Notes
A member of the RNA family "Small nucleolar RNA snR84" from Saccharomyces paradoxus, 563 nucleotides long. Gene Ontology terms of the family: RNA processing and nucleolus. For this family Rfam cites "Computational identification of non-coding RNAs in Saccharomyces cerevisiae by comparative genomics" (McCutcheon and Eddy, Nucleic Acids Res, 2003). Rfam's curators put it in the seed alignment. Pairs were carried over by alignment from the consensus structure, which was predicted with WAR.
RNA sequence: AUUGCACAACUUAAGUUUGUCGAGGAUCAAUUUUUUGAACUGAAUCUUGCUCUUUUCAAGUGCUUGAAACCCUCGAUGAAUGUGUCAAUGUGCAAAGAUAAACUAUUCUCUUUUGACCAGUGAUUUGAUAUUUGCCUUGGAGAAUAAUAUUUUCCCUUUCCUGUAAUUAACUUUUGUUCUAAAGGUUAUUUGGAGAGAAUAGGCAUGAUUGAAGUUGCGACUUUUUUUUGUUUUUUGCUUUUGCAUGGUACUUGAUCCAUGCACUUCUCAUUUUAUUGGACUUUCAAGAUUGGUUUCCCUCGUGUUUUAAUUUUUGUUAAAUUUUUCCCUCUACUUUUAAUAUGUCCUAUAUUAAUACCGGUUAUGUUGUACGUGUUUCAUUGCUGAUCUUUUACUAGACUCGUCUGAGUUCUUCGUUCAAGUUUGGUUGAUUUCGGCUUGAGGUACAUGACAUGGUCGGCAUGUGGAGGAAAUGAUGGAAAGUUACAUGGAUUUUGGGAGAUCAUAGAAGAGAAAAUAUUUGAGACAGUUUUGUACGAAAAGAAGCUAUAAACAUGACUCAG
Numbered sequence: 001a002u003u004g005c006a007c008a009a010c011u012u013a014a015g016u017u018u019g020u021c022g023a024g025g026a027u028c029a030a031u032u033u034u035u036u037g038a039a040c041u042g043a044a045u046c047u048u049g050c051u052c053u054u055u056u057c058a059a060g061u062g063c064u065u066g067a068a069a070c071c072c073u074c075g076a077u078g079a080a081u082g083u084g085u086c087a088a089u090g091u092g093c094a095a096a097g098a099u100a101a102a103c104u105a106u107u108c109u110c111u112u113u114u115g116a117c118c119a120g121u122g123a124u125u126u127g128a129u130a131u132u133u134g135c136c137u138u139g140g141a142g143a144a145u146a147a148u149a150u151u152u153u154c155c156c157u158u159u160c161c162u163g164u165a166a167u168u169a170a171c172u173u174u175u176g177u178u179c180u181a182a183a184g185g186u187u188a189u190u191u192g193g194a195g196a197g198a199a200u201a202g203g204c205a206u207g208a209u210u211g212a213a214g215u216u217g218c219g220a221c222u223u224u225u226u227u228u229u230g231u232u233u234u235u236u237g238c239u240u241u242u243g244c245a246u247g248g249u250a251c252u253u254g255a256u257c258c259a260u261g262c263a264c265u266u267c268u269c270a271u272u273u274u275a276u277u278g279g280a281c282u283u284u285c286a287a288g289a290u291u292g293g294u295u296u297c298c299c300u301c302g303u304g305u306u307u308u309a310a311u312u313u314u315u316g317u318u319a320a321a322u323u324u325u326u327c328c329c330u331c332u333a334c335u336u337u338u339a340a341u342a343u344g345u346c347c348u349a350u351a352u353u354a355a356u357a358c359c360g361g362u363u364a365u366g367u368u369g370u371a372c373g374u375g376u377u378u379c380a381u382u383g384c385u386g387a388u389c390u391u392u393u394a395c396u397a398g399a400c401u402c403g404u405c406u407g408a409g410u411u412c413u414u415c416g417u418u419c420a421a422g423u424u425u426g427g428u429u430g431a432u433u434u435c436g437g438c439u440u441g442a443g444g445u446a447c448a449u450g451a452c453a454u455g456g457u458c459g460g461c462a463u464g465u466g467g468a469g470g471a472a473a474u475g476a477u478g479g480a481a482a483g484u485u486a487c488a489u490g491g492a493u494u495u496u497g498g499g500a501g502a503u504c505a506u507a508g509a510a511g512a513g514a515a516a517a518u519a520u521u522u523g524a525g526a527c528a529g530u531u532u533u534g535u536a537c538g539a540a541a542a543g544a545a546g547c548u549a550u551a552a553a554c555a556u557g558a559c560u561c562a563g
Base pairs, nucleotide, nucleotide: 015081016080017079020076021075022074023073024072025071027043028042029041031038032037045067046066049063050062052060053059120218123215124214125213126212127210128209129208133205134204135203136202137201139155140154141153142152143151144150145149156197157196158195159194160193161192168188169187170186171185172184173183174182175181176180232517233516234515235514236513238511239510240509241508242507243262244261245260246259247258248257249255291505292504293503294502295501296500297499298498299497304494306492307491308490321477322476323475325473326472328470329469330468331467332466338354339353340352341351342350343349344348356462358460359459360458361457362456363455364454365453366452367451368450373447374446375445376444377443378442379441380440383438384437385436386435387434392431393430394429395427396426397425398424399423400422403419406416407415408414409413528548529547530546531545532544533543